[Rfam]
RNA: mir-203 microRNA precursor family
Organism: Monodelphis domestica
RNA sequence: CCUACCCAGAUCAAGUGGUCCUAAACAUUUCACAAUCUCUACACAGAACUGUUGAACUGUUAAGAACCACUGGACCAGGG
Number, nucleotide and partner (000 for none) at each position: 001c000002c000003u000004a000005c000006c000007c000008a000009g000010a000011u000012c000013a000014a071015g070016u069017g068018g067019u066020c000021c064022u063023a000024a061025a060026c059027a058028u000029u056030u055031c054032a053033c000034a000035a000036u000037c000038u000039c000040u000041a000042c000043a000044c000045a000046g000047a000048a000049c000050u000051g000052u000053u032054g031055a030056a029057c000058u027059g026060u025061u024062a000063a022064g021065a000066a019067c018068c017069a016070c015071u014072g000073g000074a000075c000076c000077a000078g000079g000080g000